[Rfam]
RNA sequence: AAGUCCGCUGCUGACAACCUGCAGGCAGUCUAAAUACCUCAUCCCGGGUUUGUGACCACGGAUGUACUGGCACGAACCCAUGAGGUGAAACGAGAGGUCGGGAAAUUUCCCGGCCUUUUUUUUG
Numbered sequence: 001a002a003g004u005c006c007g008c009u010g011c012u013g014a015c016a017a018c019c020u021g022c023a024g025g026c027a028g029u030c031u032a033a034a035u036a037c038c039u040c041a042u043c044c045c046g047g048g049u050u051u052g053u054g055a056c057c058a059c060g061g062a063u064g065u066a067c068u069g070g071c072a073c074g075a076a077c078c079c080a081u082g083a084g085g086u087g088a089a090a091c092g093a094g095a096g097g098u099c100g101g102g103a104a105a106u107u108u109c110c111c112g113g114c115c116u117u118u119u120u121u122u123u124g
Stems, first nucleotide, its partner, number of pairs: 005024001007022002036086007047078004053072002056070003087123004092119010103108001
This 124-nucleotide sequence from Labrenzia sp. 011 belongs to the Rfam family "Alphaproteobacterial sRNA ar35". The family's RNA type in Rfam is small RNA. Pairs were carried over by alignment from the consensus structure. The match comes from Rfam's covariance-model search (50 bits). A reference for the family is del Val et al. (2012), "A survey of sRNA families in alpha-proteobacteria", RNA Biol.